The family of this 113-nucleotide RNA sequence from Candidatus Brevifilum fermentans is "SAM riboswitch aptamer (S box leader)". The source organism's lineage runs through Bacteria, Bacillati, Chloroflexota, Anaerolineaceae and Candidatus Brevifilum. Pairs were carried over by alignment from the consensus structure, which is taken from published work.
[Rfam]
Nucleotides: 113
Base pairs, nucleotide, nucleotide: 001113003111004110005109006108007107008106013042014041015040016039017038021031022030023029025078026077027076028075043070044069045068046067048066049065051062052061074105079102080101081100082099084097
Number, partner (000 for none) and nucleotide at each position: 001113g002000a003111c004110u005109c006108a007107u008106c009000c010000a011000g012000a013042g014041a015040g016039g017038u018000g019000g020000a021031g022030g023029g024000a025078c026077c027076g028075g029023c030022c031021c032000g033000a034000u035000g036000a037000u038017a039016c040015c041014u042013c043070g044069g045068c046067a047000a048066c049065c050000a051062c052061a053000g054000a055000g056000a057000u058000u059000a060000a061052u062051g063000c064000a065049g066048g067046u068045g069044c070043c071000a072000a073000u074105u075028c076027c077026g078025g079102c080101a081100g082099a083000c084097c085000c086000c087000g088000a089000u090000u091000u092000g093000g094000g095000a096000c097084g098000u099082u100081c101080u102079g103000g104000a105074a106008g107007a108006u109005g110004a111003g112000g113001u